[Rfam]
RNA: Purine riboswitch aptamer
RNA sequence: ACCGUGUUUGAUAAGUUUUGUCGUAUAAUUGGCUAAAUAUGGUAGCCAGAGUUUCUACCACUUCACCGUAAAAGAAGUGACUACGAUGAACAACUUUUUCUUU
Numbered sequence: 001a002c003c004g005u006g007u008u009u010g011a012u013a014a015g016u017u018u019u020g021u022c023g024u025a026u027a028a029u030u031g032g033c034u035a036a037a038u039a040u041g042g043u044a045g046c047c048a049g050a051g052u053u054u055c056u057a058c059c060a061c062u063u064c065a066c067c068g069u070a071a072a073a074g075a076a077g078u079g080a081c082u083a084c085g086a087u088g089a090a091c092a093a094c095u096u097u098u099u100c101u102u103u
Stems, first nucleotide, its partner, number of pairs: 018089008029049007059079006